[Rfam]
RNA sequence: AGUUUUGAGCAAUCGCGGUUAGCAAAGGCUAGCUGAGGAAAGUCCACGCUCGCACGAGCUGCGAUGCUCGUAGUGUUUGUACUCAGCCCAAUAAGCUGGGGGAUUUCUUUAGAAAUCACGGCGGAAAAAGCACUAAAUCAUUUUGACAUGUGUUAGUAUCCUUAAAAGUGCCACAGUGACGAAGCAAGAUCGGAAACGAUAUUGGUGGAACGAGGUAAACCCUGCAAGCGGGCAACCCAAAUUUGGUAGGGGCGUCUCAUCUAUGGAAAUGAACUAAAGAUGAGAUCAUUUAAUGAAGAUAGAUGAUUGCUGAAGAUAGUACUUGAUCAAUGCUAUUGGAACAAAACGUGGCUUAUAGAA
Numbered sequence: 001a002g003u004u005u006u007g008a009g010c011a012a013u014c015g016c017g018g019u020u021a022g023c024a025a026a027g028g029c030u031a032g033c034u035g036a037g038g039a040a041a042g043u044c045c046a047c048g049c050u051c052g053c054a055c056g057a058g059c060u061g062c063g064a065u066g067c068u069c070g071u072a073g074u075g076u077u078u079g080u081a082c083u084c085a086g087c088c089c090a091a092u093a094a095g096c097u098g099g100g101g102g103a104u105u106u107c108u109u110u111a112g113a114a115a116u117c118a119c120g121g122c123g124g125a126a127a128a129a130g131c132a133c134u135a136a137a138u139c140a141u142u143u144u145g146a147c148a149u150g151u152g153u154u155a156g157u158a159u160c161c162u163u164a165a166a167a168g169u170g171c172c173a174c175a176g177u178g179a180c181g182a183a184g185c186a187a188g189a190u191c192g193g194a195a196a197c198g199a200u201a202u203u204g205g206u207g208g209a210a211c212g213a214g215g216u217a218a219a220c221c222c223u224g225c226a227a228g229c230g231g232g233c234a235a236c237c238c239a240a241a242u243u244u245g246g247u248a249g250g251g252g253c254g255u256c257u258c259a260u261c262u263a264u265g266g267a268a269a270u271g272a273a274c275u276a277a278a279g280a281u282g283a284g285a286u287c288a289u290u291u292a293a294u295g296a297a298g299a300u301a302g303a304u305g306a307u308u309g310c311u312g313a314a315g316a317u318a319g320u321a322c323u324u325g326a327u328c329a330a331u332g333c334u335a336u337u338g339g340a341a342c343a344a345a346a347c348g349u350g351g352c353u354u355a356u357a358g359a360a
Stems, first nucleotide, its partner, number of pairs: 004360003007356001008311007016035006040354003044351005049232005054071006077227005082100006101119001102117006120222002123161003130153004138146002168220002170216003185204003189200004236251003255285007286296004315337007
A member of the RNA family "Bacterial RNase P class B" from Lactobacillus rodentium, 360 nucleotides long. The source organism's lineage runs through Bacteria, Bacillota, Bacilli, Lactobacillales and Lactobacillus. For this family Rfam cites "Ribonuclease P: unity and diversity in a tRNA processing ribozyme" (Frank and Pace, Annu Rev Biochem, 1998). Ribonuclease P (RNase P) is a ubiquitous endoribonuclease, found in archaea, bacteria and eukarya as well as chloroplasts and mitochondria. Its best characterised activity is the generation of mature 5'-ends of tRNAs by cleaving the 5'-leader elements of precursor-tRNAs. Cellular RNase Ps are ribonucleoproteins. RNA from bacterial RNase Ps retains its catalytic activity in the absence of the protein subunit, i.e. it is a ribozyme.